[Rfam]
RNA sequence: CGGGUAGACAGACUAGCCCCGAUUGAAGUCUAGUCUAAAAAGAUACAAGGAUUAAAUUAUUAUG
Numbered sequence: 001c002g003g004g005u006a007g008a009c010a011g012a013c014u015a016g017c018c019c020c021g022a023u024u025g026a027a028g029u030c031u032a033g034u035c036u037a038a039a040a041a042g043a044u045a046c047a048a049g050g051a052u053u054a055a056a057u058u059a060u061u062a063u064g
Stems, first nucleotide, its partner, number of pairs: 001021004011035006
Dot-bracket structure: [[[[......((((((.]]]]........)))))).............................